[Rfam]
RNA sequence: ACCACACCUAGCCCCUUGAUUAGCUACCAAAGGGCGAAAACAAGGUUUUUAAUCCCUGCCUUGCUGGUGUGGUUUUCUUUUAUUUAAGGG
Numbered sequence: 001a002c003c004a005c006a007c008c009u010a011g012c013c014c015c016u017u018g019a020u021u022a023g024c025u026a027c028c029a030a031a032g033g034g035c036g037a038a039a040a041c042a043a044g045g046u047u048u049u050u051a052a053u054c055c056c057u058g059c060c061u062u063g064c065u066g067g068u069g070u071g072g073u074u075u076u077c078u079u080u081u082a083u084u085u086a087a088g089g090g
Base pairs, nucleotide, nucleotide: 001073002072003071004070005069006068007067008066011035012034013033014032041063042062043061044060045059054090055089056088057087

int-alpA RNA: a 90-nucleotide RNA sequence from Alysiella filiformis.
Taxonomically the source falls in Alysiella filiformis (Bacteria, Pseudomonadati, Pseudomonadota, Betaproteobacteria).
The family's consensus secondary structure is taken from published work.
From the family's description: Acidobacteria (1 example), Planctomycetes (1 example), Proteobacteria.